[Rfam]
The record is a 138-nucleotide RNA from a Peptococcaceae bacterium, which matches "Group II catalytic intron D1-D4-7" in Rfam.
On this family, see Lehmann and Schmidt, Crit Rev Biochem Mol Biol 2003: "Group II introns: structure and catalytic versatility of large natural ribozymes".
The organism belongs to Peptococcaceae, within Bacteria.
Pairs were carried over by alignment from the consensus structure.
RNA sequence: CUCGGUGUUUCCUCACCGAUAGCCUACCGUCACAUGCGUCGCUAGCAACAGCGGGGUAUGAAGCUGACGGGACAAUGUAGCCCAUAAUCUAAAGCCGUGAGGCCAAAGAAGGUCUGCUAGCAUGAAGCGGAAGGGCAC
Dot-bracket structure: .((((((......))))))........((((((((((.(((((......))))).)))))....)))))..................(((....((....))....)))...((((((.......)))))).......
Rfam's curators write: Group II introns are found in rRNA, tRNA and mRNA of organelles in fungi, plants and protists, and also in mRNA in bacteria.